[Rfam]
RNA sequence: AAGCAACACUCUGUGAUGGAUGAUUGAAACCGUCCAUCACAAUUUGCGCUUGCUAUAGCAAGAAAGUCUAACCUAUUCCGGUUUUCUCUCCUCAGUGAGACAAGCUGUUACAUAGACUUAAACAGU
Numbered sequence: 001a002a003g004c005a006a007c008a009c010u011c012u013g014u015g016a017u018g019g020a021u022g023a024u025u026g027a028a029a030c031c032g033u034c035c036a037u038c039a040c041a042a043u044u045u046g047c048g049c050u051u052g053c054u055a056u057a058g059c060a061a062g063a064a065a066g067u068c069u070a071a072c073c074u075a076u077u078c079c080g081g082u083u084u085u086c087u088c089u090c091c092u093c094a095g096u097g098a099g100a101c102a103a104g105c106u107g108u109u110a111c112a113u114a115g116a117c118u119u120a121a122a123c124a125g126u
Base pairs, nucleotide, nucleotide: 009048011046012041013040014039015038017036018035019034020033021032022031064119065118066117067116068115069114070113074112076110079107080106081105082104087100088099089098090097
Shown here is a 126-nucleotide sequence from Orycteropus afer, a member of the family "Small nucleolar RNA SNORA28".
Rfam describes the family as follows. ACA28 is a member of the H/ACA class of snoRNA that guide the sites of modification of uridines to pseudouridines.
Gene Ontology terms of the family: nucleolus and RNA processing.
Clan: SNORA28 clan.
Taxonomically the source falls in Orycteropus afer (Eukaryota, Eumetazoa, Gnathostomata, Mammalia).
It is annotated as an H/ACA-box small nucleolar RNA.